The record is a 66-nucleotide RNA sequence from Cottoperca gobio, which matches "Selenocysteine insertion sequence 1" in Rfam.
The family's RNA type in Rfam is cis-regulatory element.
Pairs were carried over by alignment from the consensus structure, which is taken from published work.

RNA sequence: CUGGCGUUCAUGAAGGUUCGGCCUUAAAGCAGAUUCUGCGAGGCCCGACCGGAUGUCCCCCGCCAC
Numbered sequence: 001c002u003g004g005c006g007u008u009c010a011u012g013a014a015g016g017u018u019c020g021g022c023c024u025u026a027a028a029g030c031a032g033a034u035u036c037u038g039c040g041a042g043g044c045c046c047g048a049c050c051g052g053a054u055g056u057c058c059c060c061c062g063c064c065a066c
Stems, first nucleotide, its partner, number of pairs: 002065004015050004020045005030038003
It scores 37 bits against the family's covariance model.